Annotation:
This 103-nucleotide sequence from Clostridium saccharoperbutylacetonicum belongs to the Rfam family "azaaromatic riboswitch aptamer (yjdF RNA)". A search with the family's covariance model found it, with a score of 86 bits.
[Rfam]
RNA sequence: UUUCUAAGAGAUAAAAACACAGUUUCUGUUGGUAGUCAGAACCUAUAAUUAAAUAUAGCAGUAACCUGCCCUCCUGGGGUUGUCCAUUCUCUGUGAAUUUUAU
Dot-bracket structure: ...(..(((((..........((.((((........))))))(((((......))))).........((((.....)))).......)))))..)........
Numbered sequence: 001u002u003u004c005u006a007a008g009a010g011a012u013a014a015a016a017a018c019a020c021a022g023u024u025u026c027u028g029u030u031g032g033u034a035g036u037c038a039g040a041a042c043c044u045a046u047a048a049u050u051a052a053a054u055a056u057a058g059c060a061g062u063a064a065c066c067u068g069c070c071c072u073c074c075u076g077g078g079g080u081u082g083u084c085c086a087u088u089c090u091c092u093g094u095g096a097a098u099u100u101u102a103u
Stems, first nucleotide, its partner, number of pairs: 004095001007092005022042002025040004043058005068080004
Record summary
Lineage of the source: Bacteria > Bacillati > Eubacteriales > Clostridium saccharoperbutylacetonicum > Clostridium saccharoperbutylacetonicum N1-4.